A member of the RNA family "S. aureus tsr25 small RNA" from Staphylococcus sp. HMSC071G07, 179 nucleotides long. Pairs were carried over by alignment from the consensus structure, which was predicted with RNAfold.

[Rfam]
RNA sequence: UAAUUGUAGUUGAAAAUGAUUAUCAAUACCAAAUGAACUAUUCCCCCCACACAUAUUUCGUUCUAAUUGGAUUGAUCAUUUUCACAAUAUCCCCUUUUAUAUGCCCGUAAAAGACUAACGUUGCGAGACAACGUGUUAUUAAAUAAAAACCGGUUUGCCAUACAUAAACCGGUUUUUAU
Numbered sequence: 001u002a003a004u005u006g007u008a009g010u011u012g013a014a015a016a017u018g019a020u021u022a023u024c025a026a027u028a029c030c031a032a033a034u035g036a037a038c039u040a041u042u043c044c045c046c047c048c049a050c051a052c053a054u055a056u057u058u059c060g061u062u063c064u065a066a067u068u069g070g071a072u073u074g075a076u077c078a079u080u081u082u083c084a085c086a087a088u089a090u091c092c093c094c095u096u097u098u099a100u101a102u103g104c105c106c107g108u109a110a111a112a113g114a115c116u117a118a119c120g121u122u123g124c125g126a127g128a129c130a131a132c133g134u135g136u137u138a139u140u141a142a143a144u145a146a147a148a149a150c151c152g153g154u155u156u157g158c159c160a161u162a163c164a165u166a167a168a169c170c171g172g173u174u175u176u177u178a179u
Stems, first nucleotide, its partner, number of pairs: 006090003010086001011084010024074004029070003035063004094113007118134005143179011
The organism belongs to Staphylococcus, within Bacteria. The match comes from Rfam's covariance-model search (100 bits).